[Rfam]
Rfam assigns this 134-nucleotide sequence from Prolemur simus to the family "U11 spliceosomal RNA". Lineage of the source: Eukaryota > Bilateria > Sarcopterygii > Boreoeutheria > Prolemur.
RNA sequence: ACAAAGGGCUUCUGCCCUGAGUGGCAAAUGUAAGGCAACUCGAUUGCUCUUUGUAUAGAGUCGACAUCAAGAGAUUUUGGAAGCAUGAUUUUUUGGUACUUGGGCAGCCGGUGACUGUUGGUCCUGGAGUCCUU
Numbered sequence: 001a002c003a004a005a006g007g008g009c010u011u012c013u014g015c016c017c018u019g020a021g022u023g024g025c026a027a028a029u030g031u032a033a034g035g036c037a038a039c040u041c042g043a044u045u046g047c048u049c050u051u052u053g054u055a056u057a058g059a060g061u062c063g064a065c066a067u068c069a070a071g072a073g074a075u076u077u078u079g080g081a082a083g084c085a086u087g088a089u090u091u092u093u094u095g096g097u098a099c100u101u102g103g104g105c106a107g108c109c110g111g112u113g114a115c116u117g118u119u120g121g122u123c124c125u126g127g128a129g130u131c132c133u134u
Base pairs, nucleotide, nucleotide: 008084009083010082011081012080013026014025015024016023028054029053030052032050034048035047036046037045038044056079057078058077059076060075061074062073102132103131104130105129108127109126110125111124113123114122115121116120